[Rfam]
RNA sequence: GAAUCUUACAGCUCAUUUAGAAUUUGUCUAGUAGGUUUUCUGGUCCUCACCAGAAGACCCCU
Numbered sequence: 001g002a003a004u005c006u007u008a009c010a011g012c013u014c015a016u017u018u019a020g021a022a023u024u025u026g027u028c029u030a031g032u033a034g035g036u037u038u039u040c041u042g043g044u045c046c047u048c049a050c051c052a053g054a055a056g057a058c059c060c061c062u
Stems, first nucleotide, its partner, number of pairs: 034059011